[Rfam]
RNA sequence: AGCGUUUUUCGCACAGGCGGAGCUCGACCGCCGACUCCGGUGAUCGUCGCCUACAUCGACGAUCACCGGGAAGAGUUCGGCGUUGAGCCGAUCUGCAGCGUGCUCACCGAGCAUGGAACGCCGAUCGCGCCG
Numbered sequence: 001a002g003c004g005u006u007u008u009u010c011g012c013a014c015a016g017g018c019g020g021a022g023c024u025c026g027a028c029c030g031c032c033g034a035c036u037c038c039g040g041u042g043a044u045c046g047u048c049g050c051c052u053a054c055a056u057c058g059a060c061g062a063u064c065a066c067c068g069g070g071a072a073g074a075g076u077u078c079g080g081c082g083u084u085g086a087g088c089c090g091a092u093c094u095g096c097a098g099c100g101u102g103c104u105c106a107c108c109g110a111g112c113a114u115g116g117a118a119c120g121c122c123g124a125u126c127g128c129g130c131c132g
Stems, first nucleotide, its partner, number of pairs: 016032005078132005089127002092124002095121002
Rfam assigns this 132-nucleotide RNA sequence from Blastococcus sp. CCUG 61487 to the family "ALIL pseudoknot". For this family Rfam cites "Apical loop-internal loop RNA pseudoknots: a new type of stimulator of -1 translational frameshifting in bacteria" (Mazauric et al., J Biol Chem, 2008). It is annotated as a cis-regulatory element. Pairs were carried over by alignment from the consensus structure, which is taken from published work. NCBI's taxonomy places the organism under Bacteria, Bacillati, Actinomycetota, Geodermatophilales, Blastococcus.